[Rfam]
RNA: mir-2060 microRNA precursor family
Organism: Branchiostoma floridae
RNA sequence: GUGUAUCUGUGUAUGGAUAGUGUACAGUACCAAGGACAAGCAUGUGUAUCUGCAUAUGUAGAUAGUGUUCGGCACCAAGGACAGGCAUGUGUAUCU
Numbered sequence: 001g002u003g004u005a006u007c008u009g010u011g012u013a014u015g016g017a018u019a020g021u022g023u024a025c026a027g028u029a030c031c032a033a034g035g036a037c038a039a040g041c042a043u044g045u046g047u048a049u050c051u052g053c054a055u056a057u058g059u060a061g062a063u064a065g066u067g068u069u070c071g072g073c074a075c076c077a078a079g080g081a082c083a084g085g086c087a088u089g090u091g092u093a094u095c096u
Stems, first nucleotide, its partner, number of pairs: 004087001006085005018077001020075004026069005032063001034057001036055001037052002040049001042047001
Dot-bracket structure: ...(.(((((.......(.((((..(((((.(.(.(((.(.(....).).))..).).....).)))))..)))).)...))))).).........